[Rfam]
RNA sequence: GCUCUGAAGGUAAGAGUUGUAGGAAACUGAACUCUUCCUUUGUCUGCGACAGACAGUUUCAGCAGUUCAGUUUUCUCCAACAUCUUAUCUCCAGCAC
Number, nucleotide and partner (000 for none) at each position: 001g000002c000003u000004c094005u093006g092007a000008a090009g000010g000011u087012a086013a085014g084015a000016g081017u080018u079019g078020u000021a076022g000023g074024a073025a072026a071027c070028u069029g068030a067031a000032c065033u064034c000035u000036u000037c000038c000039u000040u000041u000042g000043u000044c000045u000046g000047c000048g000049a000050c000051a000052g000053a000054c000055a000056g000057u000058u000059u000060c000061a000062g000063c000064a033065g032066u000067u030068c029069a028070g027071u026072u025073u024074u023075c000076u021077c000078c019079a018080a017081c016082a000083u000084c014085u013086u012087a011088u000089c000090u008091c000092c006093a005094g004095c000096a000097c000
The record is a 97-nucleotide RNA from Panicum virgatum, which matches "MIR2275 microRNA precursor family" in Rfam. Gene Ontology terms of the family: miRNA-mediated post-transcriptional gene silencing and RISC complex. The family's consensus secondary structure was predicted with RNAalifold.